This 77-nucleotide sequence from Hibiscus syriacus belongs to the Rfam family "mir-395 microRNA precursor family". The literature on the family includes a 2004 paper in Mol Cell by Jones-Rhoades and Bartel, "Computational Identification of Plant MicroRNAs and Their Targets, Including a Stress-Induced miRNA". Rfam 15.1 lists 2,798 matches to the family in 234 species. About the family: mir-395 was identified in both Arabidopsis thaliana and Oryza sativa computationally and was later experimentally verified. mir-395 is thought to target mRNAs coding for ATP sulphurylases. The mature sequence is excised from the 3' arm of the hairpin. The family's consensus secondary structure was predicted with PFOLD.
RNA sequence: GUGCCAACUGGAGUUCCCUCAGGCACUUCAGUUCGACUUCCAUUUACUGAAGUGUUUGGGGGAACUCUGGUUGACAU
Numbered sequence: 001g002u003g004c005c006a007a008c009u010g011g012a013g014u015u016c017c018c019u020c021a022g023g024c025a026c027u028u029c030a031g032u033u034c035g036a037c038u039u040c041c042a043u044u045u046a047c048u049g050a051a052g053u054g055u056u057u058g059g060g061g062g063a064a065c066u067c068u069g070g071u072u073g074a075c076a077u
Base pairs, nucleotide, nucleotide: 005073006072007071008070009069011067012066013065014064015063016062017061018060019059020058021057022056023055024054025053026052027051028050029049030048031047032046